[Rfam]
RNA sequence: GCGGGAGUAACUCAGUGGUAGAGUGCAACCUUGCCAAGGUUGAAGUCGAGGGUUCGAAUCCCUUCUCCCGCU
Numbered sequence: 001g002c003g004g005g006a007g008u009a010a011c012u013c014a015g016u017g018g019u020a021g022a023g024u025g026c027a028a029c030c031u032u033g034c035c036a037a038g039g040u041u042g043a044a045g046u047c048g049a050g051g052g053u054u055c056g057a058a059u060c061c062c063u064u065c066u067c068c069c070g071c072u
Stems, first nucleotide, its partner, number of pairs: 001071007010024004026042005048064005
Dot-bracket structure: (((((((..((((.......)))).(((((.......))))).....(((((.......)))))))))))).

Rfam assigns this 72-nucleotide RNA sequence from Allomicrovenator marinus to the family "tRNA". The match comes from Rfam's covariance-model search (72 bits). Lineage of the source: Bacteria > delta/epsilon subdivisions > Bradymonadales > Allomicrovenatoraceae > Allomicrovenator.